[Rfam]
RNA sequence: GUCGGGAGAGCGGCUAAUACAGCACCCGCAAGGGAAAUACGCCCGCCGUCUGCGGUUUCUGACCUCCCGACUUCCCGUC
Numbered sequence: 001g002u003c004g005g006g007a008g009a010g011c012g013g014c015u016a017a018u019a020c021a022g023c024a025c026c027c028g029c030a031a032g033g034g035a036a037a038u039a040c041g042c043c044c045g046c047c048g049u050c051u052g053c054g055g056u057u058u059c060u061g062a063c064c065u066c067c068c069g070a071c072u073u074c075c076c077g078u079c
Stems, first nucleotide, its partner, number of pairs: 001071008012043003015039002025034003045056004
RNA: sRNA-Xcc1